[Rfam]
RNA sequence: CAGCGGGACACGCCGCCCCAACGCGGUGCUAUAUAGCUGUGAGGCUAGCUUAU
Number, nucleotide and partner (000 for none) at each position: 001c000002a000003g000004c000005g000006g000007g000008a000009c000010a000011c028012g027013c026014c025015g024016c023017c000018c000019c000020a000021a000022c000023g016024c015025g014026g013027u012028g011029c000030u000031a000032u000033a000034u047035a046036g045037c044038u043039g000040u000041g000042a000043g038044g037045c036046u035047a034048g000049c000050u000051u000052a000053u000
A member of the RNA family "serC leader" from Paracoccus shanxieyensis, 53 nucleotides long. For this family Rfam cites "Evidence for a second class of S-adenosylmethionine riboswitches and other regulatory RNA motifs in alpha-proteobacteria" (Corbino et al., Genome Biol, 2005). It scores 52 bits against the family's covariance model. Taxonomically the source falls in Paracoccus (Bacteria, Pseudomonadota, Alphaproteobacteria, Paracoccaceae). About the family: This family is a putative regulatory RNA structure that is found upstream of the serC-serA operon in some alpha-proteobacteria.